Shown here is a 150-nucleotide sequence from Mumia sp. ZJ1417, a member of the family "c-di-AMP riboswitch aptamer (ydaO/yuaA leader)".
RNA sequence: CGCCUAGUUCGGCCGAGGUCCCCCGAUCGACGCCGGAGCCGGGGACCCACGCGUUCCUGGGGUGAAUCCGCGCUGCACCACGGGCGCGGUAGGGCACGUUCUUGGCCCGAACCCGUCAGCUCACCCGGUAGGCGUCGAGAACGCGAAGGA
Numbered sequence: 001c002g003c004c005u006a007g008u009u010c011g012g013c014c015g016a017g018g019u020c021c022c023c024c025g026a027u028c029g030a031c032g033c034c035g036g037a038g039c040c041g042g043g044g045a046c047c048c049a050c051g052c053g054u055u056c057c058u059g060g061g062g063u064g065a066a067u068c069c070g071c072g073c074u075g076c077a078c079c080a081c082g083g084g085c086g087c088g089g090u091a092g093g094g095c096a097c098g099u100u101c102u103u104g105g106c107c108c109g110a111a112c113c114c115g116u117c118a119g120c121u122c123a124c125c126c127g128g129u130a131g132g133c134g135u136c137g138a139g140a141a142c143g144c145g146a147a148g149g150a
Stems, first nucleotide, its partner, number of pairs: 001134004008037006038129006048059002060114003068089007092108004

A search with the family's covariance model found it, with a score of 73 bits.